The family of this 95-nucleotide RNA from Citrobacter koseri is "STnc250 Hfq binding RNA". NCBI's taxonomy places the organism under Bacteria, Pseudomonadota, Enterobacterales, Citrobacter, Citrobacter koseri. It is annotated as a small RNA. The base pairs follow the family's consensus structure, which was predicted with WAR. It scores 86 bits against the family's covariance model. For this family Rfam cites "A small non-coding RNA of the invasion gene island (SPI-1) represses outer membrane protein synthesis from the Salmonella core genome" (Pfeiffer et al., Mol Microbiol, 2007).
[Rfam]
RNA sequence: GAAGUUAUGCUUCGCAAAUAAAUUUCUGGAAGAUAUCCUGAUCCUGAAAAGGAUAAGAAAAAGGCGACUCAAAGUAAGUCGCCUUUUUUGUGUCU
Numbered sequence: 001g002a003a004g005u006u007a008u009g010c011u012u013c014g015c016a017a018a019u020a021a022a023u024u025u026c027u028g029g030a031a032g033a034u035a036u037c038c039u040g041a042u043c044c045u046g047a048a049a050a051g052g053a054u055a056a057g058a059a060a061a062a063g064g065c066g067a068c069u070c071a072a073a074g075u076a077a078g079u080c081g082c083c084u085u086u087u088u089u090g091u092g093u094c095u
Base pairs, nucleotide, nucleotide: 001013002012003011004010023035025033026032042053043052044051045050056089057088058087060086061085062084063083064082065081066080067079068078069077